[Rfam]
RNA sequence: AAGUCUCAGACAGCAGCCAUAAGCCAUCCCGUAUAAACACGGUCUGGCUCAUAGCUAUUGGAUGGGUUAACCUGUAUGAGCAAGAAGAGCGACAGCUCGGAUGGUGAAUGCAAGUAGUGAUUGUGGGAGCACCAAAGUGCGAAGCAAUCGACUU
Numbered sequence: 001a002a003g004u005c006u007c008a009g010a011c012a013g014c015a016g017c018c019a020u021a022a023g024c025c026a027u028c029c030c031g032u033a034u035a036a037a038c039a040c041g042g043u044c045u046g047g048c049u050c051a052u053a054g055c056u057a058u059u060g061g062a063u064g065g066g067u068u069a070a071c072c073u074g075u076a077u078g079a080g081c082a083a084g085a086a087g088a089g090c091g092a093c094a095g096c097u098c099g100g101a102u103g104g105u106g107a108a109u110g111c112a113a114g115u116a117g118u119g120a121u122u123g124u125g126g127g128a129g130c131a132c133c134a135a136a137g138u139g140c141g142a143a144g145c146a147a148u149c150g151a152c153u154u
Stems, first nucleotide, its partner, number of pairs: 001154004005066004012059002015056003019052002022049005029042004070115002073112005080105002083102001087098004118150007129140004
RNA: Clostridiales-1 RNA
Organism: Clostridiales bacterium CHKCI001